[Rfam]
RNA sequence: UGUCCUUUACCUGUGUAGAGUGGCAUCAAAUCGGUGGUACUUACCUUAUACCAGCCAGGGGCAAAACAGUCCCAUGUUUAUCCCAUCAUUCUUUUGGUCCAUGCACAUGCCUUGUUGAUAAAAUAGUGUCAUGG
Dot-bracket structure: (((((((...(((....(((.((.(((........))).))...)))....)))..)))))))..............(((.........(....(.(.(.(.((....)).).).).)..)..)))........